[Rfam]
RNA sequence: UCCAUCGUGAGAUGGAAUCUGAAGGAAGCCGCAGGCAAAGCACUGGCCUGACGAACAGAAAUCGCAUAUGAGGCGGUCACACCGGGUAAGGCGUCAACUAUCGUCAAAGCCCUGUACUUGCACGGAAGGUGUGGACGUAAAUGCGGCGGGCAUAAGUGUGAAGGUCACGCGUC
Numbered sequence: 001u002c003c004a005u006c007g008u009g010a011g012a013u014g015g016a017a018u019c020u021g022a023a024g025g026a027a028g029c030c031g032c033a034g035g036c037a038a039a040g041c042a043c044u045g046g047c048c049u050g051a052c053g054a055a056c057a058g059a060a061a062u063c064g065c066a067u068a069u070g071a072g073g074c075g076g077u078c079a080c081a082c083c084g085g086g087u088a089a090g091g092c093g094u095c096a097a098c099u100a101u102c103g104u105c106a107a108a109g110c111c112c113u114g115u116a117c118u119u120g121c122a123c124g125g126a127a128g129g130u131g132u133g134g135a136c137g138u139a140a141a142u143g144c145g146g147c148g149g150g151c152a153u154a155a156g157u158g159u160g161a162a163g164g165u166c167a168c169g170c171g172u173c
Base pairs, nucleotide, nucleotide: 001016002015003014004013005012006011028173030171031170032169035165036164040159041158042157043156044155046151047150048149049148050147062146063145064144065143066142067141073138074137075136077134078133079132080131081130082129083128084112085111086110087109090105091104092103093102